[Rfam]
The family of this 131-nucleotide sequence from Falco tinnunculus is "Small nucleolar RNA SNORA44". NCBI's taxonomy places the organism under Eukaryota, Euteleostomi, Saurischia, Neoaves, Falco. A reference for the family is Huttenhofer et al. (2001), "RNomics: an experimental approach that identifies 201 candidates for novel, small, non-messenger RNAs in mouse", EMBO J. It scores 80 bits against the family's covariance model. The family is grouped with related families in Rfam's "SNORA44 clan". Its family is annotated with nucleolus and RNA processing in the Gene Ontology. Rfam 15.1 lists 1,056 matches to the family in 599 species. About the family: ACA44 is a member of the H/ACA class of snoRNA that guide the sites of modification of uridines to pseudouridines.
RNA sequence: CCGCGUGUUGAUCCAAGAGCUGUGGCUCCCUGCAGUAGCUACAGGUCUCCAACAACAUGCAAGAGCAAUGGGAAGGUCUUUGACUGCUGGGCCUCUUUUGCCUGCUGCUGUCACUCGCCCUUCCUAUAAAU
Numbered sequence: 001c002c003g004c005g006u007g008u009u010g011a012u013c014c015a016a017g018a019g020c021u022g023u024g025g026c027u028c029c030c031u032g033c034a035g036u037a038g039c040u041a042c043a044g045g046u047c048u049c050c051a052a053c054a055a056c057a058u059g060c061a062a063g064a065g066c067a068a069u070g071g072g073a074a075g076g077u078c079u080u081u082g083a084c085u086g087c088u089g090g091g092c093c094u095c096u097u098u099u100g101c102c103u104g105c106u107g108c109u110g111u112c113a114c115u116c117g118c119c120c121u122u123c124c125u126a127u128a129a130a131u
Stems, first nucleotide, its partner, number of pairs: 013044001018040006071124006086111002089103003